A member of the RNA family "Fibrobacter-1 RNA", 101 nucleotides long. Pairs were carried over by alignment from the consensus structure, which is taken from published work.
[Rfam]
RNA sequence: UAUUUAUGUUCCCUAGACUUUACGCUGUGGAAAUGCGGUACUUUCCGUAAGAGAAGCACGUGGGUUCGGAAGCGUCCAUACUUUUGGAAUGCUUCUUAGGG
Number, nucleotide and partner (000 for none) at each position: 001u000002a000003u000004u000005u000006a000007u000008g000009u000010u000011c101012c100013c099014u098015a097016g000017a000018c000019u031020u030021u029022a028023c000024g000025c000026u000027g000028u022029g021030g020031a019032a000033a000034u049035g048036c047037g046038g045039u000040a000041c000042u000043u000044u000045c038046c037047g036048u035049a034050a000051g000052a000053g000054a000055a000056g000057c000058a000059c000060g000061u000062g000063g000064g000065u000066u000067c000068g096069g095070a094071a093072g000073c000074g000075u088076c087077c086078a085079u000080a000081c000082u000083u000084u000085u078086g077087g076088a075089a000090u000091g000092c000093u071094u070095c069096u068097u015098a014099g013100g012101g011